[Rfam]
RNA sequence: CAUCACCCAUCGACGGACUCAUUCGUAGGGCAGGAGCGGGGGACCCAGGUAAGUCGCCGGACCGGACGGCACAUGUCGCGCCGGAACGGCUAGGGGUGAAGUCGUGCCUCCCCCCAGGGGCACGGCCGGGCACCUCCCCGCCCGAACCCGACAGCUCACCUCGCAGGCGACGGAGAGGAUCUUC
Numbered sequence: 001c002a003u004c005a006c007c008c009a010u011c012g013a014c015g016g017a018c019u020c021a022u023u024c025g026u027a028g029g030g031c032a033g034g035a036g037c038g039g040g041g042g043a044c045c046c047a048g049g050u051a052a053g054u055c056g057c058c059g060g061a062c063c064g065g066a067c068g069g070c071a072c073a074u075g076u077c078g079c080g081c082c083g084g085a086a087c088g089g090c091u092a093g094g095g096g097u098g099a100a101g102u103c104g105u106g107c108c109u110c111c112c113c114c115c116a117g118g119g120g121c122a123c124g125g126c127c128g129g130g131c132a133c134c135u136c137c138c139c140g141c142c143c144g145a146a147c148c149c150g151a152c153a154g155c156u157c158a159c160c161u162c163g164c165a166g167g168c169g170a171c172g173g174a175g176a177g178g179a180u181c182u183u184c
Stems, first nucleotide, its partner, number of pairs: 001033001036164006046093001094149003102125008128143004
Shown here is a 184-nucleotide RNA sequence from Streptomyces collinus, a member of the family "c-di-AMP riboswitch aptamer (ydaO/yuaA leader)". It scores 52 bits against the family's covariance model. A reference for the family is Barrick et al. (2004), "New RNA motifs suggest an expanded scope for riboswitches in bacterial genetic control", Proc Natl Acad Sci U S A. The source organism's lineage runs through Bacteria, Actinomycetes, Streptomycetaceae, Streptomyces and Streptomyces collinus.